[Rfam]
RNA: mir-1261 microRNA precursor family
RNA sequence: UGCUGUGGAUAAGGCUUUGGCUUAUGGGGAUAUUGUGGUUGAUCUGUUCUAUCCAGAUGACUGAAACUUUCUCCAUAGCAGC
Numbered sequence: 001u002g003c004u005g006u007g008g009a010u011a012a013g014g015c016u017u018u019g020g021c022u023u024a025u026g027g028g029g030a031u032a033u034u035g036u037g038g039u040u041g042a043u044c045u046g047u048u049c050u051a052u053c054c055a056g057a058u059g060a061c062u063g064a065a066a067c068u069u070u071c072u073c074c075a076u077a078g079c080a081g082c
Stems, first nucleotide, its partner, number of pairs: 001080009011070004016065005022060004028054005
Dot-bracket structure: (((((((((.((((.(((((.((((..(((((.................)))))..))))))))).)))).)))))))))..